This 107-nucleotide RNA sequence from Natronincola ferrireducens belongs to the Rfam family "PyrR binding site".
Taxonomically the source falls in Natronincola (Bacteria, Bacillati, Clostridia, Peptostreptococcales).
By type it is a cis-regulatory element.
RNA sequence: AAAGUCUUUAAUUCAGUCCAGAGAGGCUGGCAAGAUACCGGAAUAUAUAGUAAUAAUUAUUACAAGAUUACUAUGACUUCUUGCCAGUAGGCAGGAAGUUUUUUAUU
Dot-bracket structure: ...(((((....((((((......)))))).)))))....(...((.(.(((((....))))).).))...)(.(((((((((((....))))))))))).).....
Numbered sequence: 001a002a003a004g005u006c007u008u009u010a011a012u013u014c015a016g017u018c019c020a021g022a023g024a025g026g027c028u029g030g031c032a033a034g035a036u037a038c039c040g041g042a043a044u045a046u047a048u049a050g051u052a053a054u055a056a057u058u059a060u061u062a063c064a065a066g067a068u069u070a071c072u073a074u075g076a077c078u079u080c081u082u083g084c085c086a087g088u089a090g091g092c093a094g095g096a097a098g099u100u101u102u103u104u105a106u107u
Stems, first nucleotide, its partner, number of pairs: 004036005013030006041072001045068002048065001050063005073102001075100011